[Rfam]
Description:
Shown here is a 145-nucleotide RNA sequence, a member of the family "RT-14 RNA". By type it is a small RNA.

RNA sequence: CUCUAAUACAAUUCCAGAUUAUAUAUUUUAAGGAAUAUAUACAGAGAAAGUAUUAGUAUUAAAGAGAUUUAUUCCUUCCUAAUUUAGGUAAAAAAGUAUCAGCAAAUUAUGUAUUAGUAGGCCAAGCAGAAUAUACAUAAUAUGC
Numbered sequence: 001c002u003c004u005a006a007u008a009c010a011a012u013u014c015c016a017g018a019u020u021a022u023a024u025a026u027u028u029u030a031a032g033g034a035a036u037a038u039a040u041a042c043a044g045a046g047a048a049a050g051u052a053u054u055a056g057u058a059u060u061a062a063a064g065a066g067a068u069u070u071a072u073u074c075c076u077u078c079c080u081a082a083u084u085u086a087g088g089u090a091a092a093a094a095a096g097u098a099u100c101a102g103c104a105a106a107u108u109a110u111g112u113a114u115u116a117g118u119a120g121g122c123c124a125a126g127c128a129g130a131a132u133a134u135a136c137a138u139a140a141u142a143u144g145c
Base pairs, nucleotide, nucleotide: 003056004055005054006053007052008051009050013047014046020041021040022039023038024037025036026035027034028033078088079087080086081085102145103144104143106141107140108139109138110137111136112135113134114133121127122126